[Rfam]
RNA sequence: AUCUGAAAAGGGCAAACUUAUUGAAAAAUAAGGACGCAAAGCUAUGGACCUAACCGUUUUAUACGUAUGGUUGCCAGGUUGCCAGA
Numbered sequence: 001a002u003c004u005g006a007a008a009a010g011g012g013c014a015a016a017c018u019u020a021u022u023g024a025a026a027a028a029u030a031a032g033g034a035c036g037c038a039a040a041g042c043u044a045u046g047g048a049c050c051u052a053a054c055c056g057u058u059u060u061a062u063a064c065g066u067a068u069g070g071u072u073g074c075c076a077g078g079u080u081g082c083c084a085g086a
Stems, first nucleotide, its partner, number of pairs: 012037002017032006040080004045076003048071003055065003
A member of the RNA family "c-di-GMP-I riboswitch aptamer" from Niallia nealsonii, 86 nucleotides long. It scores 83 bits against the family's covariance model.